U11 spliceosomal RNA: a 133-nucleotide RNA from Tupaia belangeri. The family's RNA type in Rfam is spliceosomal small nuclear RNA. The family's consensus secondary structure is taken from published work. The family is grouped with related families in Rfam's "U1 clan".
RNA sequence: AGAAAGGGCUUCUGCCAUGAGAGGUACACAGAGGACAACUUGAUUGUUCUUUUGUGGAAUCGAUAUCAAGAGAUUUUAGAAGGAUAACGUUUUGGUAGUUGGGCAAUUGGUGAUAUUUGGUCCAGAUGCCUUU
Dot-bracket structure: ........((((((((......))))((.(((((((((.....)))))))))))(((((((..........)))))))))))..................((((.(((.(.(((.....)))).)))))))..